[Rfam]
RNA sequence: GUCGGUUUUCGGUAGUGGCCGUCGGAACACCUCGUUCGCACCCUCGUGCCCCGCAGGUUCCGACAGCUUCGAUCGAAGGCCGGC
Numbered sequence: 001g002u003c004g005g006u007u008u009u010c011g012g013u014a015g016u017g018g019c020c021g022u023c024g025g026a027a028c029a030c031c032u033c034g035u036u037c038g039c040a041c042c043c044u045c046g047u048g049c050c051c052c053g054c055a056g057g058u059u060c061c062g063a064c065a066g067c068u069u070c071g072a073u074c075g076a077a078g079g080c081c082g083g084c
Stems, first nucleotide, its partner, number of pairs: 001084007009076005017068003021064008
RNA: Actino-pnp RNA